[Rfam]
RNA sequence: UAGCAUAUGAUGAUGUACUCGGAUUCCCCUUCUAGACAAUAUGGAUGAUGCUAUCUCGAGUUUCUGAUGCU
Numbered sequence: 001u002a003g004c005a006u007a008u009g010a011u012g013a014u015g016u017a018c019u020c021g022g023a024u025u026c027c028c029c030u031u032c033u034a035g036a037c038a039a040u041a042u043g044g045a046u047g048a049u050g051c052u053a054u055c056u057c058g059a060g061u062u063u064c065u066g067a068u069g070c071u
Stems, first nucleotide, its partner, number of pairs: 002071004
Dot-bracket structure: .((((..............................................................))))
The record is a 71-nucleotide sequence from Jatropha curcas, which matches "Small nucleolar RNA snoR60" in Rfam.
Rfam links the family to the GO terms nucleolus and RNA processing.
It scores 77 bits against the family's covariance model.
The family's consensus secondary structure was predicted with PFOLD.
It is annotated as a C/D-box small nucleolar RNA.